Small nucleolar RNA snoR104: a 121-nucleotide RNA sequence from Cuscuta campestris. It is annotated as an H/ACA-box small nucleolar RNA. On this family, see Marker et al., Curr Biol 2002: "Experimental RNomics: identification of 140 candidates for small non-messenger RNAs in the plant Arabidopsis thaliana". Rfam 15.1 lists 612 matches to the family in 228 species.
RNA sequence: GGGGAGUUUCUGUAAGUUAAGAAGCUUCCCGAUUCAUUCUUCCUAAAUUAAUAAAUCUUCUGGGGUUUCCUGCUCGUGGUUCGUGAGCAUGUUCACGAGUCUCUAGUAACCAGACACAUGC
Numbered sequence: 001g002g003g004g005a006g007u008u009u010c011u012g013u014a015a016g017u018u019a020a021g022a023a024g025c026u027u028c029c030c031g032a033u034u035c036a037u038u039c040u041u042c043c044u045a046a047a048u049u050a051a052u053a054a055a056u057c058u059u060c061u062g063g064g065g066u067u068u069c070c071u072g073c074u075c076g077u078g079g080u081u082c083g084u085g086a087g088c089a090u091g092u093u094c095a096c097g098a099g100u101c102u103c104u105a106g107u108a109a110c111c112a113g114a115c116a117c118a119u120g121c
Base pairs, nucleotide, nucleotide: 001030002029003028005026006025007024008023009022010021011020059114060113061112072100073099074098075097076096077095078094079093082091083090
NCBI's taxonomy places the organism under Eukaryota, Tracheophyta, Pentapetalae, Cuscuta, Cuscuta sect. Cleistogrammica.